[Rfam]
RNA: Ribosomal protein L20 leader
RNA sequence: GGAAAAAAGAAGAAGCACCCGCUUCUCACCUGAUUGACGCGAAAGAGCAGUUGGCAGGUUUUACGUGAACUAUUUGUUUUAUUACUUAUGUUCUGUAAAAGUGUGGGUGUAUUCAUCCGCACUUUUUUAUUUGU
Number, nucleotide and partner (000 for none) at each position: 001g000002g000003a000004a000005a000006a000007a000008a000009g000010a000011a026012g025013a024014a023015g022016c021017a000018c000019c000020c000021g016022c015023u014024u013025c012026u011027c000028a059029c058030c057031u000032g000033a000034u000035u000036g052037a051038c050039g048040c047041g000042a000043a000044a000045g000046a000047g040048c039049a000050g038051u037052u036053g000054g000055c000056a000057g030058g029059u028060u000061u000062u000063a000064c000065g000066u000067g000068a000069a000070c000071u000072a000073u000074u000075u000076g000077u000078u000079u000080u000081a000082u000083u000084a000085c000086u000087u000088a000089u000090g000091u000092u000093c000094u000095g000096u000097a000098a000099a000100a000101g000102u121103g120104u119105g118106g117107g116108u115109g114110u000111a000112u000113u000114c109115a108116u107117c106118c105119g104120c103121a102122c000123u000124u000125u000126u000127u000128u000129a000130u000131u000132u000133g000134u000